[Rfam]
Rfam assigns this 71-nucleotide RNA sequence from Sharpea azabuensis to the family "Fluoride riboswitch aptamer (crcB RNA motif)". Pairs were carried over by alignment from the consensus structure, which is taken from published work. The organism belongs to Sharpea, within Bacteria. The match comes from Rfam's covariance-model search (40 bits).
RNA sequence: UAAGCACAAGGGAAUGAAUGUCUCCCGCGAGCAAUCGAAACCGCUAUUAAGCUGAUGACUUCUAUCUUAUU
Numbered sequence: 001u002a003a004g005c006a007c008a009a010g011g012g013a014a015u016g017a018a019u020g021u022c023u024c025c026c027g028c029g030a031g032c033a034a035u036c037g038a039a040a041c042c043g044c045u046a047u048u049a050a051g052c053u054g055a056u057g058a059c060u061u062c063u064a065u066c067u068u069a070u071u
Stems, first nucleotide, its partner, number of pairs: 010026004016062003020059003043052003